[Rfam]
Nucleotides: 088
Stems, first nucleotide, its partner, number of pairs: 003025006027042005048080010
Number, partner (000 for none) and nucleotide at each position: 001000c002000c003025c004024c005023c006022g007021c008020u009000u010000u011000c012000c013000c014000u015000c016000c017000c018000u019000g020008a021007g022006c023005g024004g025003g026000a027042g028041c029040c030039u031038u032000c033000a034000u035000g036000c037000u038031a039030a040029g041028g042027c043000g044000u045000u046000c047000g048080a049079c050078c051077c052076c053075g054074g055073g056072u057071c058000u059000u060000u061000c062000u063000u064000c065000c066000c067000c068000u069000u070000u071057g072056g073055c074054u075053c076052g077051g078050g079049g080048u081000c082000u083000u084000u085000c086000u087000u088000u

Rfam assigns this 88-nucleotide sequence from Azoarcus taiwanensis to the family "Burkholderia RNA 7 (anti-hemB)". A search with the family's covariance model found it, with a score of 56 bits. Taxonomically the source falls in Azoarcus (Bacteria, Pseudomonadati, Betaproteobacteria, Rhodocyclales). The literature on the family includes a 2017 paper in Sci Rep by Sass et al., "Identification of small RNAs abundant in Burkholderia cenocepacia biofilms reveal putative regulators with a potential role in carbon and iron metabolism". It is annotated as a small RNA.